[Rfam]
RNA sequence: CAAAUAGAACCGGGGAGCUUAUGUGAUAGGCUGAGAGGAAGUUUAAAACUUCGACCCAUAUACCUGAUUUGGAUAAUGCCAACGUAGGAACGCAAGGAAUAUGCUAUG
Numbered sequence: 001c002a003a004a005u006a007g008a009a010c011c012g013g014g015g016a017g018c019u020u021a022u023g024u025g026a027u028a029g030g031c032u033g034a035g036a037g038g039a040a041g042u043u044u045a046a047a048a049c050u051u052c053g054a055c056c057c058a059u060a061u062a063c064c065u066g067a068u069u070u071g072g073a074u075a076a077u078g079c080c081a082a083c084g085u086a087g088g089a090a091c092g093c094a095a096g097g098a099a100u101a102u103g104c105u106a107u108g
Stems, first nucleotide, its partner, number of pairs: 010092001012057003017031005038052005063088004069082004
RNA: TPP riboswitch aptamer (THI element)
Organism: Dorea sp. CAG:105